[Rfam]
Rfam assigns this 158-nucleotide RNA sequence from Caproiciproducens galactitolivorans to the family "DUF2800 RNA". The match comes from Rfam's covariance-model search (125 bits).
RNA sequence: UCACCUCUAAGUGCAUCUACUGAUCACGGAUGGUUCAGCGUAGCAAGGUGAACAAACGAAUAACGAACAGCUGACUACUGAACAGGAAGCUGCAAUCCGAAACGGAGAAAUCUGUGAUGGACUGCGGUCUGGCUCUUAUUGCCUUUUUCAGCUGAGCA
Numbered sequence: 001u002c003a004c005c006u007c008u009a010a011g012u013g014c015a016u017c018u019a020c021u022g023a024u025c026a027c028g029g030a031u032g033g034u035u036c037a038g039c040g041u042a043g044c045a046a047g048g049u050g051a052a053c054a055a056a057c058g059a060a061u062a063a064c065g066a067a068c069a070g071c072u073g074a075c076u077a078c079u080g081a082a083c084a085g086g087a088a089g090c091u092g093c094a095a096u097c098c099g100a101a102a103c104g105g106a107g108a109a110a111u112c113u114g115u116g117a118u119g120g121a122c123u124g125c126g127g128u129c130u131g132g133c134u135c136u137u138a139u140u141g142c143c144u145u146u147u148u149c150a151g152c153u154g155a156g157c158a
Stems, first nucleotide, its partner, number of pairs: 001051005011041003014032005033083006068154007089128005102115005